The record is a 103-nucleotide sequence from Aphis gossypii, which matches "mir-277 microRNA precursor family" in Rfam.
Lineage of the source: Eukaryota > Eumetazoa > Allotriocarida > Paraneoptera > Aphis.
The literature on the family includes a 2010 paper in BMC Genomics by Liu et al., "MicroRNAs of Bombyx mori identified by Solexa sequencing".
Rfam 15.1 lists 170 matches to the family in 166 species.

RNA sequence: AGGUGCUCGAAGACCGUACCAGAAGUGUUUUUGACAUGGACACACGGUUUUUGCCGUUCCCAAAUCAUGUAAAUGCACUAUCUGGUACGACACUUCGGCGCCC
Numbered sequence: 001a002g003g004u005g006c007u008c009g010a011a012g013a014c015c016g017u018a019c020c021a022g023a024a025g026u027g028u029u030u031u032u033g034a035c036a037u038g039g040a041c042a043c044a045c046g047g048u049u050u051u052u053g054c055c056g057u058u059c060c061c062a063a064a065u066c067a068u069g070u071a072a073a074u075g076c077a078c079u080a081u082c083u084g085g086u087a088c089g090a091c092a093c094u095u096c097g098g099c100g101c102c103c
Base pairs, nucleotide, nucleotide: 008097009096010095011094015089016088017087018086019085020084021083022082023081025078027076028075030073031072032071040070041069042068